A member of the RNA family "FMN riboswitch aptamer (RFN element)" from Paenibacillus stellifer, 165 nucleotides long.
The RFN element is a highly conserved domain that is found frequently in the 5'-untranslated regions of prokaryotic mRNAs that encode for flavin mononucleotide (FMN) biosynthesis and transport proteins. This element is a metabolite-dependent riboswitch that directly binds FMN in the absence of proteins. In Bacillus subtilis, the riboswitch most likely controls gene expression by causing premature transcription termination within the 5' untranslated region of the ribDEAHT operon and precluding access to the ribosome-binding site of ypaA mRNA.The FMN riboswitch structure, reported in present an FMN-bound six-stem junction, adopts a butterfly-like scaffold, stapled together by opposingly directed but nearly identically folded peripheral domains.
The match comes from Rfam's covariance-model search (105 bits).
RNA sequence: AUAAUCCUUCAGGGCAGGGUGAAAUUCCCUACCGGCGGUGAUGAAACAGAUGACGCAUCAGCGUAGCUAGUUUCUCAGUCCGCUACCCGGACCGCAAUCAAUGCGGACGGUGGACCUGGUGCAAUUCCGGGACCGACAGUAUAGUCUGGAUGGAAGAAGGAGAGU
Numbered sequence: 001a002u003a004a005u006c007c008u009u010c011a012g013g014g015c016a017g018g019g020u021g022a023a024a025u026u027c028c029c030u031a032c033c034g035g036c037g038g039u040g041a042u043g044a045a046a047c048a049g050a051u052g053a054c055g056c057a058u059c060a061g062c063g064u065a066g067c068u069a070g071u072u073u074c075u076c077a078g079u080c081c082g083c084u085a086c087c088c089g090g091a092c093c094g095c096a097a098u099c100a101a102u103g104c105g106g107a108c109g110g111u112g113g114a115c116c117u118g119g120u121g122c123a124a125u126u127c128c129g130g131g132a133c134c135g136a137c138a139g140u141a142u143a144g145u146c147u148g149g150a151u152g153g154a155a156g157a158a159g160g161a162g163a164g165u
Base pairs, nucleotide, nucleotide: 005161006160007159008158009157010156017029018028019027031145032144033135034134035083036082037081038080087110088109115131116130117129118128119127137148138147139146